Record summary: A member of the RNA family "Bacterial RNase P class A" from Jannaschia rubra, 393 nucleotides long. Pairs were carried over by alignment from the consensus structure, which is taken from published work. It is annotated as a ribozyme.
RNA sequence: GCGGGGGGCCGGACGGCCGCGGGGUCAGCCCCGAGGAAAGUCCGGACUCCACGAAGCGACGGUGCCGGGUAACGCCCGGGCGGGGACCGGCGGGGCAACCCACCGGGAACUCGACGGAAAGCGCCACAGAAAACAGACCGCCCUGCAUGCAGGGUCAGGGUGAAACGGUGGGGUAAGAGCCCACCGGGGGGCUGGCAACAGCGCCCGCAUGGCAAGCCCCACCGGGAGCAAUGCCGAAUAGGGACCCCAGGCCGCCCGCAGGGGCGGCAGAGGCGCUUCGCCUUCGGGGUCCGGGUUGGCAGCUUGAGGCCCGAAGCGAUUCGCGGCCCAGAUGAAUGGUCGUCACCGGGGGCAACCCCGGCACAGAAUCCGGCUUACAGGCCCCCCGCGCAC
Numbered sequence: 001g002c003g004g005g006g007g008g009c010c011g012g013a014c015g016g017c018c019g020c021g022g023g024g025u026c027a028g029c030c031c032c033g034a035g036g037a038a039a040g041u042c043c044g045g046a047c048u049c050c051a052c053g054a055a056g057c058g059a060c061g062g063u064g065c066c067g068g069g070u071a072a073c074g075c076c077c078g079g080g081c082g083g084g085g086a087c088c089g090g091c092g093g094g095g096c097a098a099c100c101c102a103c104c105g106g107g108a109a110c111u112c113g114a115c116g117g118a119a120a121g122c123g124c125c126a127c128a129g130a131a132a133a134c135a136g137a138c139c140g141c142c143c144u145g146c147a148u149g150c151a152g153g154g155u156c157a158g159g160g161u162g163a164a165a166c167g168g169u170g171g172g173g174u175a176a177g178a179g180c181c182c183a184c185c186g187g188g189g190g191g192c193u194g195g196c197a198a199c200a201g202c203g204c205c206c207g208c209a210u211g212g213c214a215a216g217c218c219c220c221a222c223c224g225g226g227a228g229c230a231a232u233g234c235c236g237a238a239u240a241g242g243g244a245c246c247c248c249a250g251g252c253c254g255c256c257c258g259c260a261g262g263g264g265c266g267g268c269a270g271a272g273g274c275g276c277u278u279c280g281c282c283u284u285c286g287g288g289g290u291c292c293g294g295g296u297u298g299g300c301a302g303c304u305u306g307a308g309g310c311c312c313g314a315a316g317c318g319a320u321u322c323g324c325g326g327c328c329c330a331g332a333u334g335a336a337u338g339g340u341c342g343u344c345a346c347c348g349g350g351g352g353c354a355a356c357c358c359c360g361g362c363a364c365a366g367a368a369u370c371c372g373g374c375u376u377a378c379a380g381g382c383c384c385c386c387c388g389c390g391c392a393c
Stems, first nucleotide, its partner, number of pairs: 001389010011378001012344007020033005038376003042373005047228004056278001058276001060224005065079005080115001081113004116219002121217002123213003138159002140155006167185006186208001187206003191202004232301004242292006270284005308327001310325001312323004